[Rfam]
RNA sequence: CCUUCUGAAGUUUCCCUCAGGAUAGCAGCGGCAUUUUUCAGUUUGUCUGGUAAAGCUAAUGAUUAGAGGCUCGGGGGCGCAAGGCCCUUCACCUAUUCUCAAACUUUAAAUGGGCAAGGACGCUGGCGCACUUGUUUGGCGGCAGCGGGAUGGAAUGGGUAGCCGUUAGUGGGCCAGUUUGGUAAGCAGAUCUGGCGAUGCGGGAUGAACCGAACGGCGGGUUAAAGUGCCUCAGUGGACGCUCAUGUAGAACCCAUGAAGGUGUUGGUUCAUUAAGACAGCAGGACGGUGGUCAUGGAAGUCGAAAGCCGCUAAGGAGUGUGUAACAACUCACCUGCCGAAUGGCCUAGCCCUGAAAAUGGAUGGCGCUCAAGCGACUCACUUAUACCCGGCCAACAACGCGGGCGUUGUUGAGUAAGAAGGCGUGGCGCUCGUGGAGAAGCUGUUACAGCCGUGAGGCGUAGUGGAACGGGCGGUAGUGCAGAU
Numbered sequence: 001c002c003u004u005c006u007g008a009a010g011u012u013u014c015c016c017u018c019a020g021g022a023u024a025g026c027a028g029c030g031g032c033a034u035u036u037u038u039c040a041g042u043u044u045g046u047c048u049g050g051u052a053a054a055g056c057u058a059a060u061g062a063u064u065a066g067a068g069g070c071u072c073g074g075g076g077g078c079g080c081a082a083g084g085c086c087c088u089u090c091a092c093c094u095a096u097u098c099u100c101a102a103a104c105u106u107u108a109a110a111u112g113g114g115c116a117a118g119g120a121c122g123c124u125g126g127c128g129c130a131c132u133u134g135u136u137u138g139g140c141g142g143c144a145g146c147g148g149g150a151u152g153g154a155a156u157g158g159g160u161a162g163c164c165g166u167u168a169g170u171g172g173g174c175c176a177g178u179u180u181g182g183u184a185a186g187c188a189g190a191u192c193u194g195g196c197g198a199u200g201c202g203g204g205a206u207g208a209a210c211c212g213a214a215c216g217g218c219g220g221g222u223u224a225a226a227g228u229g230c231c232u233c234a235g236u237g238g239a240c241g242c243u244c245a246u247g248u249a250g251a252a253c254c255c256a257u258g259a260a261g262g263u264g265u266u267g268g269u270u271c272a273u274u275a276a277g278a279c280a281g282c283a284g285g286a287c288g289g290u291g292g293u294c295a296u297g298g299a300a301g302u303c304g305a306a307a308g309c310c311g312c313u314a315a316g317g318a319g320u321g322u323g324u325a326a327c328a329a330c331u332c333a334c335c336u337g338c339c340g341a342a343u344g345g346c347c348u349a350g351c352c353c354u355g356a357a358a359a360u361g362g363a364u365g366g367c368g369c370u371c372a373a374g375c376g377a378c379u380c381a382c383u384u385a386u387a388c389c390c391g392g393c394c395a396a397c398a399a400c401g402c403g404g405g406c407g408u409u410g411u412u413g414a415g416u417a418a419g420a421a422g423g424c425g426u427g428g429c430g431c432u433c434g435u436g437g438a439g440a441a442g443c444u445g446u447u448a449c450a451g452c453c454g455u456g457a458g459g460c461g462u463a464g465u466g467g468a469a470c471g472g473g474c475g476g477u478a479g480u481g482c483a484g485a486u
Base pairs, nucleotide, nucleotide: 001423002422003421004420005419006418011024013022014021015020027167028166029165030164031163032162042118043117044116045115046114047113048112053107054105055104060101061100062099065096067094068093069092073090074089075088076087077086078084121147122146123145124144125143127141128140129139173196174195175194176193177192178190179189180188181187201212202211203210216393218391219390220389222387226383227382228381235380237379240376241375242374261353262352264351265350266349267348268347270345271344272343273342281338282337283336284335285334287311288310289309293305294304312316317332321330322329394413395412396411397410398409399408400407401406424481426478427477429475430474431473432472433471434470435469442465443464451460452459453458
Source information:
The family of this 486-nucleotide part of an RNA from Thecamonas trahens is "Eukaryotic large subunit ribosomal RNA". NCBI's taxonomy places the organism under Eukaryota, Apusozoa, Apusomonadida, Apusomonadidae, Thecamonas trahens. On this family, see Yusupov et al., Science 2001: "Crystal structure of the ribosome at 5.5 A resolution".